RNA sequence: GAAGCUGACCAGACAGUCGCCGCUUCGUCGUCGUCCCUUUCGGGGGAAACGGGCGGAGGGGAGGAAAGUCCGGGCUCCAUAGGGCAGGGUGCCAGGUAACGCCUGGGGGCGCAAGCCACGACCAGUGCAACAGAGAGCAAACCGCCGAUGGCCCGCGCAAGCGGGAUCAGGUAAGGGUGAAAGGGUGCGGUAAGAGCGCACCGCGCGGCUGGUAACAGUUCGCGGCACGGUAAACUCCACCCGGAGCAAGGCCAAAUAGGGUUCAUAAGGUACGGCCCGUACUGAACCCGGGUAGGCUGCUUGAGCCAGUGAGCGAUUGCUGGCUAGAUGAA
Numbered sequence: 001g002a003a004g005c006u007g008a009c010c011a012g013a014c015a016g017u018c019g020c021c022g023c024u025u026c027g028u029c030g031u032c033g034u035c036c037c038u039u040u041c042g043g044g045g046g047a048a049a050c051g052g053g054c055g056g057a058g059g060g061g062a063g064g065a066a067a068g069u070c071c072g073g074g075c076u077c078c079a080u081a082g083g084g085c086a087g088g089g090u091g092c093c094a095g096g097u098a099a100c101g102c103c104u105g106g107g108g109g110c111g112c113a114a115g116c117c118a119c120g121a122c123c124a125g126u127g128c129a130a131c132a133g134a135g136a137g138c139a140a141a142c143c144g145c146c147g148a149u150g151g152c153c154c155g156c157g158c159a160a161g162c163g164g165g166a167u168c169a170g171g172u173a174a175g176g177g178u179g180a181a182a183g184g185g186u187g188c189g190g191u192a193a194g195a196g197c198g199c200a201c202c203g204c205g206c207g208g209c210u211g212g213u214a215a216c217a218g219u220u221c222g223c224g225g226c227a228c229g230g231u232a233a234a235c236u237c238c239a240c241c242c243g244g245a246g247c248a249a250g251g252c253c254a255a256a257u258a259g260g261g262u263u264c265a266u267a268a269g270g271u272a273c274g275g276c277c278c279g280u281a282c283u284g285a286a287c288c289c290g291g292g293u294a295g296g297c298u299g300c301u302u303g304a305g306c307c308a309g310u311g312a313g314c315g316a317u318u319g320c321u322g323g324c325u326a327g328a329u330g331a332a
Stems, first nucleotide, its partner, number of pairs: 020061002023058006075246004082278004087242005092106005107119001108117003120237002125235002127231002142176002144172003149169003153165002184202006203226001204224005209218003250298004259289006269283005305324008
Shown here is a 332-nucleotide sequence from Micrococcus endophyticus, a member of the family "Bacterial RNase P class A". Its family is annotated with dimeric ribonuclease P complex, tRNA processing and ribonuclease P activity in the Gene Ontology. Rfam classes the family as a ribozyme. Lineage of the source: Bacteria > Bacillati > Actinomycetes > Micrococcaceae > Micrococcus. The base pairs follow the family's consensus structure, which is taken from published work.